[Rfam]
Small nucleolar RNA SNORD58: a 69-nucleotide RNA sequence from Silurus meridionalis.
Pairs were carried over by alignment from the consensus structure, which was predicted with PFOLD.
For this family Rfam cites "Purified box C/D snoRNPs are able to reproduce site-specific 2'-O-methylation of target RNA in vitro" (Galardi et al., Mol Cell Biol, 2002).
It scores 70 bits against the family's covariance model.
The source organism's lineage runs through Eukaryota, Neopterygii, Teleostei, Siluriformes and Silurus.
snoRNA U58 is found in introns 1, 3 and 6 of the ribosomal protein RPL17 gene in humans.
Rfam links the family to the GO terms nucleolus and RNA processing.
Clan: SNORD58 clan.
RNA sequence: CUGCAAUGAUGACUUCUUAGGACACCUUUGGAAUAAUGAUGAAAAGAAUCAAAUGUUUUUCUGAGCAGC
Number, nucleotide and partner (000 for none) at each position: 001c068002u067003g066004c065005a000006a000007u000008g000009a000010u000011g000012a000013c000014u000015u000016c000017u000018u000019a000020g000021g000022a000023c000024a000025c000026c000027u000028u000029u000030g000031g000032a000033a000034u000035a000036a000037u000038g000039a000040u000041g000042a000043a000044a000045a000046g000047a000048a000049u000050c000051a000052a000053a000054u000055g000056u000057u000058u000059u000060u000061c000062u000063g000064a000065g004066c003067a002068g001069c000